[Rfam]
RNA sequence: CCGGGGAGCUGGGCAGCCGCGCCGUUCGCAAGAAUGUCGAGGAAAGUCCGGGCUCCACGAAACAAGGGUGGCGGGUAACGCCCGCCGGGUGAGGAGGGCUUUCAGGCCCUUCGAAGCUCAGGGAAAGUGCCACAGAGAGCAGACCGCUAACCCCGCUCGUCCCGAGCUUGUCGAAGGAUCGGGUGGGGCAGCAAGGGUGAAAGGGUGCGGCAAGAGCGCACCGCGCUUCCGGUAACGGCAGCGGCAUGGCAAACCCCACCCGGAGCAAGACCGAAUAGGGGCUGCGUCCCGGACGAGUCCAACGACUUGGCCCGGGGGGGUCGGUUUCGGACCCAGGCAGCCCGGGUUGGUCGCUGGAGCGAUGCGGCAACGCAUCGCCGAGAGGAAUGGCUGCCGCCGCGGCGUAAGGUCCCUCGUUAGGGAGACCACGCCAGGUACAGAACCCGGCUUACAGGCUCCCCGGCAUA
Numbered sequence: 001c002c003g004g005g006g007a008g009c010u011g012g013g014c015a016g017c018c019g020c021g022c023c024g025u026u027c028g029c030a031a032g033a034a035u036g037u038c039g040a041g042g043a044a045a046g047u048c049c050g051g052g053c054u055c056c057a058c059g060a061a062a063c064a065a066g067g068g069u070g071g072c073g074g075g076u077a078a079c080g081c082c083c084g085c086c087g088g089g090u091g092a093g094g095a096g097g098g099c100u101u102u103c104a105g106g107c108c109c110u111u112c113g114a115a116g117c118u119c120a121g122g123g124a125a126a127g128u129g130c131c132a133c134a135g136a137g138a139g140c141a142g143a144c145c146g147c148u149a150a151c152c153c154c155g156c157u158c159g160u161c162c163c164g165a166g167c168u169u170g171u172c173g174a175a176g177g178a179u180c181g182g183g184u185g186g187g188g189c190a191g192c193a194a195g196g197g198u199g200a201a202a203g204g205g206u207g208c209g210g211c212a213a214g215a216g217c218g219c220a221c222c223g224c225g226c227u228u229c230c231g232g233u234a235a236c237g238g239c240a241g242c243g244g245c246a247u248g249g250c251a252a253a254c255c256c257c258a259c260c261c262g263g264a265g266c267a268a269g270a271c272c273g274a275a276u277a278g279g280g281g282c283u284g285c286g287u288c289c290c291g292g293a294c295g296a297g298u299c300c301a302a303c304g305a306c307u308u309g310g311c312c313c314g315g316g317g318g319g320g321u322c323g324g325u326u327u328c329g330g331a332c333c334c335a336g337g338c339a340g341c342c343c344g345g346g347u348u349g350g351u352c353g354c355u356g357g358a359g360c361g362a363u364g365c366g367g368c369a370a371c372g373c374a375u376c377g378c379c380g381a382g383a384g385g386a387a388u389g390g391c392u393g394c395c396g397c398c399g400c401g402g403c404g405u406a407a408g409g410u411c412c413c414u415c416g417u418u419a420g421g422g423a424g425a426c427c428a429c430g431c432c433a434g435g436u437a438c439a440g441a442a443c444c445c446g447g448c449u450u451a452c453a454g455g456c457u458c459c460c461c462g463g464c465a466u467a
Base pairs, nucleotide, nucleotide: 001463002462003461004460005459006458007457008456009455010454011452012395013394014393015392016391017390018389020039021038023036024035025034026033027032044450045449046448048447049446050445051444052443053265054264055263056262062327064325066261067260068259069258070257071085072084073083074082075081086121087119088118089117090116122256123255127254128253129250130249131248144196145195146192147191148190151188152187153186154185155184156183157182158181159180204222205221206220207219208218209217223245224243225242226241227240229238230237231236269352270351271350272349279343280342281341282340283339284338319333320332321331322330359378360377361376362375363374364373365372366371
A member of the RNA family "Bacterial RNase P class A" from Novosphingobium sp. CF614, 467 nucleotides long. From the family's description: Ribonuclease P (RNase P) is a ubiquitous endoribonuclease, found in archaea, bacteria and eukarya as well as chloroplasts and mitochondria. Lineage of the source: Bacteria > Alphaproteobacteria > Sphingomonadales > Sphingomonadaceae > Novosphingobium. A search with the family's covariance model found it, with a score of 264 bits.